[Rfam]
RNA sequence: CUGUCUGUGAUGAUCAAGCUUUCGAGCCGCUGUGUCUGGGCCACUGAUGUUCAUGAUGGAGUUGAGGAUCUGAGCAG
Numbered sequence: 001c002u003g004u005c006u007g008u009g010a011u012g013a014u015c016a017a018g019c020u021u022u023c024g025a026g027c028c029g030c031u032g033u034g035u036c037u038g039g040g041c042c043a044c045u046g047a048u049g050u051u052c053a054u055g056a057u058g059g060a061g062u063u064g065a066g067g068a069u070c071u072g073a074g075c076a077g
Base pairs, nucleotide, nucleotide: 001077002076003075005074